[Rfam]
L4-Archaeoglobi ribosomal protein leades: a 94-nucleotide RNA sequence. The literature on the family includes a 2020 paper in BMC Microbiol by Eckert and Weinberg, "Discovery of 20 novel ribosomal leader candidates in bacteria and archaea". The family's consensus secondary structure is taken from published work. The sequence is in the family's curated seed alignment.
RNA sequence: CUGAUAAAGGCGUCUGGGUGGAAAUCGGAGUUGAUCGCCCAAUACCCCUAGUGUCGAAAGAGAUAUACAAGCCGGGGCAACGCCUAAAUGUCAG
Dot-bracket structure: (((((..((((((.((((....(.(((....))))..))))...((((..(((((......))))).......))))..))))))....)))))